Overview: The record is a 75-nucleotide sequence from Ziziphus jujuba, which matches "Plastid-ycf2 5UTR RNA" in Rfam.
Nucleotides: 075
Stems, first nucleotide, its partner, number of pairs: 003075006010026005040069001044066002047063003051059001
Number, partner (000 for none) and nucleotide at each position: 001000g002000u003075g004074c005073a006072u007071c008070u009000a010026g011025u012024a013023g014022g015000a016000a017000u018000u019000g020000a021000a022014c023013c024012u025011a026010u027000g028000a029000a030000g031000u032000c033000g034000c035000c036000a037000a038000u039000u040069a041000u042000a043000a044066g045065u046000g047063g048062g049061g050000c051059g052000c053000u054000u055000u056000a057000a058000c059051u060000a061049u062048u063047u064000a065045g066044c067000c068000c069040u070008g071007g072006a073005u074004g075003c
NCBI's taxonomy places the organism under Eukaryota, Embryophyta, Tracheophyta, Pentapetalae, Ziziphus. From the family's description: Plastid ycf2 is a non-coding RNA (ncRNA) recognised in plastids. It was found in the prime untranslated region (5UTR) of ycf2 genes, it presents a tRNA-like motif which suggests it can be involved in mRNA maturation, particularly involved in defining the precise 5' end of the transcript. It is annotated as a cis-regulatory element. The family has 204 seed sequences and 3,521 matches in Rfam 15.1.